This 113-nucleotide sequence from Aegilops tauschii belongs to the Rfam family "Small nucleolar RNA Z118/Z121/Z120". It scores 55 bits against the family's covariance model. By type it is a C/D-box small nucleolar RNA.
[Rfam]
Nucleotides: 113
Base pairs, nucleotide, nucleotide: 001113002112003111004110005109006108007107045070046069047068048067
Number, partner (000 for none) and nucleotide at each position: 001113u002112g003111u004110u005109u006108g007107c008000u009000g010000u011000a012000a013000u014000a015000u016000a017000a018000a019000a020000c021000u022000g023000g024000u025000c026000a027000c028000a029000a030000g031000g032000a033000c034000g035000g036000u037000a038000u039000c040000u041000g042000a043000g044000a045070a046069a047068g048067g049000u050000g051000u052000c053000u054000c055000c056000u057000a058000a059000a060000a061000a062000g063000u064000g065000c066000u067048c068047c069046u070045u071000c072000a073000u074000u075000g076000a077000u078000u079000g080000u081000a082000c083000a084000u085000u086000c087000u088000g089000a090000a091000c092000u093000g094000a095000u096000c097000a098000a099000a100000u101000u102000u103000c104000u105000g106000a107007g108006c109005a110004a111003a112002u113001g